[Rfam]
RNA: Clostridiales-1 RNA
Organism: Dorea sp. CAG:105
RNA sequence: UGAUACCAAGGUCAAAAGGUCGAAAGCCGCAUGAGCUUGCUCAUAAGUGGCUGUAUGACCUUGGGACCUGCCCCAAUAUGAGCAUAAAAGUGGGAUUGUGAUCCCACGAUAUGCGAAUAGUGGGCAGAAUUGUGAGAGUGCGCAGCACGGAACAAUUCGUGGGUAUCA
Numbered sequence: 001u002g003a004u005a006c007c008a009a010g011g012u013c014a015a016a017a018g019g020u021c022g023a024a025a026g027c028c029g030c031a032u033g034a035g036c037u038u039g040c041u042c043a044u045a046a047g048u049g050g051c052u053g054u055a056u057g058a059c060c061u062u063g064g065g066a067c068c069u070g071c072c073c074c075a076a077u078a079u080g081a082g083c084a085u086a087a088a089a090g091u092g093g094g095a096u097u098g099u100g101a102u103c104c105c106a107c108g109a110u111a112u113g114c115g116a117a118u119a120g121u122g123g124g125c126a127g128a129a130u131u132g133u134g135a136g137a138g139u140g141c142g143c144a145g146c147a148c149g150g151a152a153c154a155a156u157u158c159g160u161g162g163g164u165a166u167c168a
Base pairs, nucleotide, nucleotide: 001168002167003166004165005164006163007162010068011067012066013065016062017061018060019059020058021057022056024054026051027050028049029048030047031044032043033042034041035040072124073123074122075121077119078118079117082114083113084112085111090107091106092105093104094103095102096101127158128157129156130155131154132153133152138148139147140146141145
Dot-bracket structure: (((((((..((((..(((((((.(.((((((((((....)))))..)))))..).)))))))..))))...((((.(((..((((....(((((((....)))))))...))))..))).))))..(((((((....((((...))))...)))))))...)))))))